Shown here is a 130-nucleotide sequence from Lachnospiraceae bacterium A4, a member of the family "FMN riboswitch aptamer (RFN element)". The source organism's lineage runs through Bacteria, Bacillati, Bacillota, Lachnospirales and Lachnospiraceae. Rfam links the family to the GO term FMN binding. Rfam's curators write: The RFN element is a highly conserved domain that is found frequently in the 5'-untranslated regions of prokaryotic mRNAs that encode for flavin mononucleotide (FMN) biosynthesis and transport proteins. This element is a metabolite-dependent riboswitch that directly binds FMN in the absence of proteins. In Bacillus subtilis, the riboswitch most likely controls gene expression by causing premature transcription termination within the 5' untranslated region of the ribDEAHT operon and precluding access to the ribosome-binding site of ypaA mRNA.The FMN riboswitch structure, reported in present an FMN-bound six-stem junction, adopts a butterfly-like scaffold, stapled together by opposingly directed but nearly identically folded peripheral domains.
RNA sequence: CAGCGUCUUCAGGGCAGGGUGCGAUUCCCUACCGGUGGUACAGCCCACGAGCCGGCUGCUGAUUUGUCAGCAGGCAUGAUUCGGUGAAACUCCGAAGCCGACAGUAUAGUCUGGACGAAAGAAGAUCAGG
Dot-bracket structure: ....((((((......(((.......))).[[((((((....[[))))....(....................).....(((((.......)))))]])).(((....]]))).......))))))....